Source information:
The record is a 106-nucleotide RNA from Sphingopyxis sp. QXT-31, which matches "Glycine riboswitch aptamer" in Rfam. The organism belongs to Sphingopyxis, within Bacteria.
[Rfam]
RNA sequence: AACGGACACUCUGGAAAGCGUUCCGGCUCCUGCUGGAACCACCGAAGGGGUAACCCCAUGAUAUCAUGGGGGAAAACUCUCAGGUUCCCGUGACAGAGGGGGCAUG
Numbered sequence: 001a002a003c004g005g006a007c008a009c010u011c012u013g014g015a016a017a018g019c020g021u022u023c024c025g026g027c028u029c030c031u032g033c034u035g036g037a038a039c040c041a042c043c044g045a046a047g048g049g050g051u052a053a054c055c056c057c058a059u060g061a062u063a064u065c066a067u068g069g070g071g072g073a074a075a076a077c078u079c080u081c082a083g084g085u086u087c088c089c090g091u092g093a094c095a096g097a098g099g100g101g102g103c104a105u106g
Base pairs, nucleotide, nucleotide: 007100009098010097011096012095013094020039021038022037023036024035025034026033041085042084043083044081045080048079049078050077054072055071056070057069